Shown here is a 265-nucleotide RNA sequence from Clostridium sp. CAG:448, a member of the family "Bacterial large signal recognition particle RNA".
RNA sequence: CCAUACCAGCCGGGGUAGUAGCGGGGCCCUGUACCCGAAAUCCGCUACAGCGGGGGUGGAUUCCUUGUUUGAGGACCGACCACUUACGAGUUGAGUCGCAGUCGCUGUGUUGAGAAGUGGGUCUUGCGCAAUUGGCAGCCGUGAACCAUGUCAGGUGGGGGACCAAGCAGCAUUAAGCGGUGUCGUCAAUGUGACGCGAGGCAGCCUGCUUUGAGCAGGGAAUGCGAAGAUCGUGUGGGUGUGAAGUACGAUCCAAGGUGUAUGG
Numbered sequence: 001c002c003a004u005a006c007c008a009g010c011c012g013g014g015g016u017a018g019u020a021g022c023g024g025g026g027c028c029c030u031g032u033a034c035c036c037g038a039a040a041u042c043c044g045c046u047a048c049a050g051c052g053g054g055g056g057u058g059g060a061u062u063c064c065u066u067g068u069u070u071g072a073g074g075a076c077c078g079a080c081c082a083c084u085u086a087c088g089a090g091u092u093g094a095g096u097c098g099c100a101g102u103c104g105c106u107g108u109g110u111u112g113a114g115a116a117g118u119g120g121g122u123c124u125u126g127c128g129c130a131a132u133u134g135g136c137a138g139c140c141g142u143g144a145a146c147c148a149u150g151u152c153a154g155g156u157g158g159g160g161g162a163c164c165a166a167g168c169a170g171c172a173u174u175a176a177g178c179g180g181u182g183u184c185g186u187c188a189a190u191g192u193g194a195c196g197c198g199a200g201g202c203a204g205c206c207u208g209c210u211u212u213g214a215g216c217a218g219g220g221a222a223u224g225c226g227a228a229g230a231u232c233g234u235g236u237g238g239g240u241g242u243g244a245a246g247u248a249c250g251a252u253c254c255a256a257g258g259u260g261u262a263u264g265g
Stems, first nucleotide, its partner, number of pairs: 001265006009057003012030005019023001034054004063258005073249001075247002081241008093232002096227005105219001106217003114212009123200006129191002132189005138181005148173004156165003
The family's consensus secondary structure is taken from published work. Its family is annotated with signal recognition particle, plasma membrane targeting and SRP-dependent cotranslational protein targeting to membrane, signal sequence recognition in the Gene Ontology. From the family's description: The signal recognition particle (SRP) is a universally conserved ribonucleoprotein involved in the co-translational targeting of proteins to membranes. Rfam classes the family as a non-coding RNA gene.